[Rfam]
Nucleotides: 074
Stems, first nucleotide, its partner, number of pairs: 001074006008067001011029005020059004046066002049063002
Number, partner (000 for none) and nucleotide at each position: 001074a002073g003072u004071a005070u006069u007000u008067g009000a010000g011029g012028a013027u014026a015025g016000a017000a018000a019000a020059g021058g022057u023056a024000g025015c026014u027013a028012u029011c030000a031000c032000c033000u034000a035000u036000g037000u038000u039000a040000g041000a042000a043000g044000a045000u046066a047065u048000a049063g050062g051000a052000g053000u054000g055000c056023u057022g058021c059020u060000a061000c062050c063049u064000c065047a066046u067008c068000u069006a070005a071004u072003a073002c074001u